RNA sequence: CCCGGUUUGGCUCCUCCCCCCCCGAGCCGAACCGUGGGGACGACCCCAGCUCUCCCCCCCGGCUGGGGUCGUCGCAU
Numbered sequence: 001c002c003c004g005g006u007u008u009g010g011c012u013c014c015u016c017c018c019c020c021c022c023c024g025a026g027c028c029g030a031a032c033c034g035u036g037g038g039g040a041c042g043a044c045c046c047c048a049g050c051u052c053u054c055c056c057c058c059c060c061g062g063c064u065g066g067g068g069u070c071g072u073c074g075c076a077u
Stems, first nucleotide, its partner, number of pairs: 002038002004033010039073013

Notes: The family of this 77-nucleotide sequence from Streptomyces beijiangensis is "6C RNA". Pairs were carried over by alignment from the consensus structure, which is taken from published work. NCBI's taxonomy places the organism under Bacteria, Bacillati, Actinomycetota, Actinomycetes, Streptomyces. A search with the family's covariance model found it, with a score of 58 bits.